[Rfam]
RNA: Small nucleolar RNA Z13/snr52
Organism: Drepanopeziza brunnea
RNA sequence: CUGUUCAAAAUAAUGAAAGAAAUUCGGAUUUUAAAUCAUCUUGUCUCCGAGAGAGCAAAACCGUGUGGAGAUUUUCCGUUGCCUUCCUUCUGAUUCAAGAA
Number, nucleotide and partner (000 for none) at each position: 001c000002u000003g000004u099005u098006c000007a000008a000009a000010a000011u000012a000013a000014u000015g000016a000017a000018a000019g000020a000021a000022a000023u000024u000025c078026g077027g076028a075029u000030u000031u000032u000033a000034a000035a000036u000037c000038a000039u000040c000041u000042u000043g000044u000045c000046u000047c000048c000049g000050a000051g000052a000053g000054a000055g000056c000057a000058a000059a000060a000061c000062c000063g000064u000065g000066u000067g000068g000069a000070g000071a000072u000073u000074u000075u028076c027077c026078g025079u000080u000081g000082c000083c000084u000085u000086c000087c000088u000089u000090c000091u000092g000093a000094u000095u000096c000097a000098a005099g004100a000101a000